[Rfam]
Rfam assigns this 84-nucleotide RNA from Anaeromicrobium sediminis to the family "Clostridiales-2 RNA". A search with the family's covariance model found it, with a score of 68 bits. The organism belongs to Anaeromicrobium, within Bacteria. The family's RNA type in Rfam is small RNA. Pairs were carried over by alignment from the consensus structure, which is taken from published work.
RNA sequence: AAAAAGUAAGGGGUAUGGGGGAAGAAUUCCCCUACCUCUUUAAAGGAGGGUGUUCAGAUUACGAUAGUAAUCGUCGAAGGGAAC
Numbered sequence: 001a002a003a004a005a006g007u008a009a010g011g012g013g014u015a016u017g018g019g020g021g022a023a024g025a026a027u028u029c030c031c032c033u034a035c036c037u038c039u040u041u042a043a044a045g046g047a048g049g050g051u052g053u054u055c056a057g058a059u060u061a062c063g064a065u066a067g068u069a070a071u072c073g074u075c076g077a078a079g080g081g082a083a084c
Base pairs, nucleotide, nucleotide: 016034017033018032019031020030021029022028057072058071059070060069061068